A member of the RNA family "SgrS RNA" from Trabulsiella odontotermitis, 251 nucleotides long. The source organism's lineage runs through Bacteria, Pseudomonadati, Enterobacterales, Enterobacteriaceae and Trabulsiella. The match comes from Rfam's covariance-model search (137 bits). Rfam describes the family as follows. In sugar transport-related sRNA (SgrS) is induced under conditions of glucose phosphate stress in E.coli. Rfam classes the family as an antisense RNA. The family's consensus secondary structure was predicted with RNAalifold.

RNA sequence: GAUGAAGCGAGGAGGUGAAUAUGCAGAAGUCAUCCACACGCCAGUUUUAUCGCCAGUACUUUUUGGCGACGCAGGAAGCGUCAUGGCUGGCCCGCCAGUUAGCAGGAGCGCGGUUGAAAAUGCUCGAGGAGCUGAUGCAGUGGGAAGUUACAAAACCGACUUCUGAUCCUCAUUGACUUGCCCAUAUCAUGUGUGACUGAGUAUUGGUGCUACAUUGCCACGCCAGCAGAGUGUCUCUGCUGGCCUUUUUU
Numbered sequence: 001g002a003u004g005a006a007g008c009g010a011g012g013a014g015g016u017g018a019a020u021a022u023g024c025a026g027a028a029g030u031c032a033u034c035c036a037c038a039c040g041c042c043a044g045u046u047u048u049a050u051c052g053c054c055a056g057u058a059c060u061u062u063u064u065g066g067c068g069a070c071g072c073a074g075g076a077a078g079c080g081u082c083a084u085g086g087c088u089g090g091c092c093c094g095c096c097a098g099u100u101a102g103c104a105g106g107a108g109c110g111c112g113g114u115u116g117a118a119a120a121u122g123c124u125c126g127a128g129g130a131g132c133u134g135a136u137g138c139a140g141u142g143g144g145a146a147g148u149u150a151c152a153a154a155a156c157c158g159a160c161u162u163c164u165g166a167u168c169c170u171c172a173u174u175g176a177c178u179u180g181c182c183c184a185u186a187u188c189a190u191g192u193g194u195g196a197c198u199g200a201g202u203a204u205u206g207g208u209g210c211u212a213c214a215u216u217g218c219c220a221c222g223c224c225a226g227c228a229g230a231g232u233g234u235c236u237c238u239g240c241u242g243g244c245c246u247u248u249u250u251u
Stems, first nucleotide, its partner, number of pairs: 001188004007181005033144004039137002042134007050127003054122002067089002070086001071084001074081001098115001102111002162176002222244008